Notes:
The family of this 72-nucleotide RNA sequence from Rodentolepis nana is "HDV ribozyme from F. prausnitzii".
[Rfam]
RNA sequence: GGUGUGCGAUAGACUUACACCUCCACGUGGUGCACUCUGGGCAACGUAUGUUCAUACGGCAAAAAAGUAUAU
Numbered sequence: 001g002g003u004g005u006g007c008g009a010u011a012g013a014c015u016u017a018c019a020c021c022u023c024c025a026c027g028u029g030g031u032g033c034a035c036u037c038u039g040g041g042c043a044a045c046g047u048a049u050g051u052u053c054a055u056a057c058g059g060c061a062a063a064a065a066a067g068u069a070u071a072u
Stems, first nucleotide, its partner, number of pairs: 001038002004035004019031003045058005
It scores 52 bits against the family's covariance model.